The family of this 80-nucleotide RNA from Eleutherodactylus coqui is "Small nucleolar RNA MBII-202". Lineage of the source: Eukaryota > Opisthokonta > Sarcopterygii > Hyloidea > Eleutherodactylus. It scores 42 bits against the family's covariance model. On this family, see Huttenhofer et al., EMBO J 2001: "RNomics: an experimental approach that identifies 201 candidates for novel, small, non-messenger RNAs in mouse".

[Rfam]
RNA sequence: UGAUGACACGUUCUCCGAAAUCUGUGCUUUUCUGUGAUGACUACCUUGAACCCCUUAUUCUGAUGGUUGUUGGAGUCAGC
Numbered sequence: 001u002g003a004u005g006a007c008a009c010g011u012u013c014u015c016c017g018a019a020a021u022c023u024g025u026g027c028u029u030u031u032c033u034g035u036g037a038u039g040a041c042u043a044c045c046u047u048g049a050a051c052c053c054c055u056u057a058u059u060c061u062g063a064u065g066g067u068u069g070u071u072g073g074a075g076u077c078a079g080c
Stems, first nucleotide, its partner, number of pairs: 002080001004078003
Dot-bracket structure: .(.(((.....................................................................))).)